[Rfam]
RNA sequence: GGAUUGACUAUGAGUCCUCAUAAAAACAUUCUUUGGAAAAGCUGAAUAAAAUGAACGACAACUCACUACUGUUGUUCUCAUCAGAACUGAGGUCC
Numbered sequence: 001g002g003a004u005u006g007a008c009u010a011u012g013a014g015u016c017c018u019c020a021u022a023a024a025a026a027c028a029u030u031c032u033u034u035g036g037a038a039a040a041g042c043u044g045a046a047u048a049a050a051a052u053g054a055a056c057g058a059c060a061a062c063u064c065a066c067u068a069c070u071g072u073u074g075u076u077c078u079c080a081u082c083a084g085a086a087c088u089g090a091g092g093u094c095c
Stems, first nucleotide, its partner, number of pairs: 001095005027057001029055003033049003
RNA: Small nucleolar RNA SNORD116
Organism: Carlito syrichta